[Rfam]
RNA sequence: GUCUCUGAGGACGAUUUCAAAAUACUUUCGUUCUUCCGAGUUUUAUCAAUGCAGAAAGAAAUUGGAGACCUGAACUGAAGAGAC
Dot-bracket structure: ..((((........................................................................))))..